[Rfam]
RNA: c-di-AMP riboswitch aptamer (ydaO/yuaA leader)
Organism: Kribbella voronezhensis
RNA sequence: GAUCACCUACCACCCGGCAACAGAGGGCGGAAGUGGGGGACCCACAGGUUCCCGGACCGCGCCGGACCGAAACGUCCGGUCACGUCCUUGGGGCGAAGCCGCGCCAGCGGCCGGGUAAUACUUCCGACCCGAGCCCGACAGCUAACCUCACAGGCGUGCAGGAAGGACUG
Numbered sequence: 001g002a003u004c005a006c007c008u009a010c011c012a013c014c015c016g017g018c019a020a021c022a023g024a025g026g027g028c029g030g031a032a033g034u035g036g037g038g039g040a041c042c043c044a045c046a047g048g049u050u051c052c053c054g055g056a057c058c059g060c061g062c063c064g065g066a067c068c069g070a071a072a073c074g075u076c077c078g079g080u081c082a083c084g085u086c087c088u089u090g091g092g093g094c095g096a097a098g099c100c101g102c103g104c105c106a107g108c109g110g111c112c113g114g115g116u117a118a119u120a121c122u123u124c125c126g127a128c129c130c131g132a133g134c135c136c137g138a139c140a141g142c143u144a145a146c147c148u149c150a151c152a153g154g155c156g157u158g159c160a161g162g163a164a165g166g167a168c169u170g
Stems, first nucleotide, its partner, number of pairs: 004156001006154002013030001033151006043090002091136003099110004113130004